[Rfam]
RNA sequence: GACGCAAACUUGAAAUAGAGUAGAACAGUAGGAUCAGCUGACCAUACUAAUCUACUCUAGUUCAAAUUUGGGCCC
Number, nucleotide and partner (000 for none) at each position: 001g074002a000003c072004g000005c070006a069007a068008a067009c000010u000011u064012g063013a062014a061015a000016u059017a058018g057019a056020g055021u054022a053023g052024a000025a000026c000027a048028g047029u046030a045031g000032g043033a000034u041035c040036a000037g000038c000039u000040g035041a034042c000043c032044a000045u030046a029047c028048u027049a000050a000051u000052c023053u022054a021055c020056u019057c018058u017059a016060g000061u014062u013063c012064a011065a000066a000067u008068u007069u006070g005071g000072g003073c000074c001075c000
The family of this 75-nucleotide RNA from Haemonchus placei is "mir-5928 microRNA precursor family".